Rfam assigns this 173-nucleotide RNA from Hordeum vulgare to the family "MIR2118 microRNA precursor family". Rfam 15.1 lists 2,377 matches to the family in 45 species. Pairs were carried over by alignment from the consensus structure, which was predicted with RNAalifold. On this family, see Johnson et al., Genome Res 2009: "Clusters and superclusters of phased small RNAs in the developing inflorescence of rice". NCBI's taxonomy places the organism under Eukaryota, Tracheophyta, Petrosaviidae, Hordeum, Hordeum vulgare. A search with the family's covariance model found it, with a score of 118 bits.
RNA sequence: GUCGGAAAGAGAAAGAAAAGAGGGCCUAAGAGCUGUGGGAAUGGGAACAUGAAGGAAAGCCUAACUUAGCUUUGUUUUCACCUCUAGUGUUGGAGGUGAGAACUCAAUUUAGUGCUUCCCGAUGCCUUCCAUUCCUAUUGUUCUCAAGCACUCCUUCCUCUUUCCUUUUUGAC
Number, nucleotide and partner (000 for none) at each position: 001g000002u000003c000004g000005g000006a000007a000008a000009g164010a163011g162012a161013a159014a000015g157016a156017a155018a000019a000020g153021a152022g151023g000024g000025c148026c000027u146028a000029a144030g143031a142032g141033c140034u000035g000036u137037g136038g135039g134040a133041a132042u131043g130044g129045g128046a127047a000048c124049a123050u122051g000052a000053a000054g119055g118056a000057a117058a116059g115060c114061c000062u000063a000064a000065c000066u000067u000068a000069g000070c000071u000072u000073u000074g000075u000076u000077u000078u000079c000080a000081c000082c000083u000084c000085u000086a000087g000088u000089g000090u000091u000092g000093g000094a000095g000096g000097u000098g000099a000100g000101a000102a000103c000104u000105c000106a000107a000108u000109u000110u000111a000112g000113u000114g060115c059116u058117u057118c055119c054120c000121g000122a050123u049124g048125c000126c000127u046128u045129c044130c043131a042132u041133u040134c039135c038136u037137a036138u000139u000140g033141u032142u031143c030144u029145c000146a027147a000148g025149c000150a000151c022152u021153c020154c000155u017156u016157c015158c000159u013160c000161u012162u011163u010164c009165c000166u000167u000168u000169u000170u000171g000172a000173c000